[Rfam]
A member of the RNA family "Plastid-psbN 5UTR RNA" from Nostoc sp. T09, 61 nucleotides long. By type it is a cis-regulatory element. For this family Rfam cites "Retrograde signaling in plants: A critical review focusing on the GUN pathway and beyond" (Richter et al., Plant Commun, 2023). The match comes from Rfam's covariance-model search (55 bits).
RNA sequence: AAAAACAGCCAUUACAGGUGUAGUUCCCCAACCCGGAGCAACUUUACCAUACUCAGAGUUU
Numbered sequence: 001a002a003a004a005a006c007a008g009c010c011a012u013u014a015c016a017g018g019u020g021u022a023g024u025u026c027c028c029c030a031a032c033c034c035g036g037a038g039c040a041a042c043u044u045u046a047c048c049a050u051a052c053u054c055a056g057a058g059u060u061u
Stems, first nucleotide, its partner, number of pairs: 017045002020042002023039005